Shown here is a 128-nucleotide RNA from Phyllostomus discolor, a member of the family "Small nucleolar RNA SNORA28". Rfam's curators write: ACA28 is a member of the H/ACA class of snoRNA that guide the sites of modification of uridines to pseudouridines. The family's consensus secondary structure was predicted with RNAfold. For this family Rfam cites "RNomics: an experimental approach that identifies 201 candidates for novel, small, non-messenger RNAs in mouse" (Huttenhofer et al., EMBO J, 2001).

RNA sequence: AGGAAACACUUUGAAUAGUAAUGGAAAUGCUACUGUCUGACACAAUUUGAGCUUGCUGCAGCAACGGAGUCUAACCUAUUCAGUGCUCUCUCUUCCACGAGACAAGCCAUUAUACAGAUUUAGACAGU
Numbered sequence: 001a002g003g004a005a006a007c008a009c010u011u012u013g014a015a016u017a018g019u020a021a022u023g024g025a026a027a028u029g030c031u032a033c034u035g036u037c038u039g040a041c042a043c044a045a046u047u048u049g050a051g052c053u054u055g056c057u058g059c060a061g062c063a064a065c066g067g068a069g070u071c072u073a074a075c076c077u078a079u080u081c082a083g084u085g086c087u088c089u090c091u092c093u094u095c096c097a098c099g100a101g102a103c104a105a106g107c108c109a110u111u112a113u114a115c116a117g118a119u120u121u122a123g124a125c126a127g128u
Stems, first nucleotide, its partner, number of pairs: 009051003012044002016039003021034001067121006077114003083107002089102004

The family's RNA type in Rfam is H/ACA-box small nucleolar RNA.